[Rfam]
RNA sequence: AGCAGUCCGUGGGGGUGCUUCUGGUAAAACCAGAGGCUGAGAGCAGACCCCUUGAACCUGAUCUGGGUAAUACCAGCGCAGGAAACGGCAAAAAAAAUAAC
Numbered sequence: 001a002g003c004a005g006u007c008c009g010u011g012g013g014g015g016u017g018c019u020u021c022u023g024g025u026a027a028a029a030c031c032a033g034a035g036g037c038u039g040a041g042a043g044c045a046g047a048c049c050c051c052u053u054g055a056a057c058c059u060g061a062u063c064u065g066g067g068u069a070a071u072a073c074c075a076g077c078g079c080a081g082g083a084a085a086c087g088g089c090a091a092a093a094a095a096a097a098u099a100a101c
Stems, first nucleotide, its partner, number of pairs: 007088004011051004016045001017037008057082004063076004

TPP riboswitch aptamer (THI element): a 101-nucleotide RNA from Caldithrix abyssi. Lineage of the source: Bacteria > Calditrichota > Calditrichia > Calditrichales > Caldithrix abyssi.